[Rfam]
Nucleotides: 079
Base pairs, nucleotide, nucleotide: 002050003049004048005047006046007045008044021037022036023035024034025033026032
Number, partner (000 for none) and nucleotide at each position: 001000u002050u003049c004048g005047c006046c007045g008044a009000g010000g011000g012000g013000c014000g015000c016000u017000g018000c019000g020000a021037c022036c023035g024034u025033g026032c027000g028000c029000a030000a031000g032026g033025c034024a035023c036022g037021g038000c039000c040000a041000g042000g043000c044008u045007c046006g047005g048004c049003g050002g051000g052000g053000a054000c055000g056000a057000a058000g059000a060000u061000u062000c063000a064000a065000c066000g067000g068000c069000g070000c071000c072000c073000g074000u075000u076000g077000c078000c079000g